RNA sequence: GCUCUUGGCCGCUCAGUAGUCGGUGUAGGAUCUGUCCGACAGUCUCACUAACAGCUACAUCUGAUUACUGGGUCACCAAAGGGCCAC
Numbered sequence: 001g002c003u004c005u006u007g008g009c010c011g012c013u014c015a016g017u018a019g020u021c022g023g024u025g026u027a028g029g030a031u032c033u034g035u036c037c038g039a040c041a042g043u044c045u046c047a048c049u050a051a052c053a054g055c056u057a058c059a060u061c062u063g064a065u066u067a068c069u070g071g072g073u074c075a076c077c078a079a080a081g082g083g084c085c086a087c
Stems, first nucleotide, its partner, number of pairs: 013071006020064003023060006032054004
About this RNA:
Rfam assigns this 87-nucleotide RNA sequence from Chauna torquata to the family "mir-221 microRNA precursor family". For this family Rfam cites "MicroRNA profile of Marek's disease virus-transformed T-cell line MSB-1: predominance of virus-encoded microRNAs" (Yao et al., J Virol, 2008). It scores 52 bits against the family's covariance model.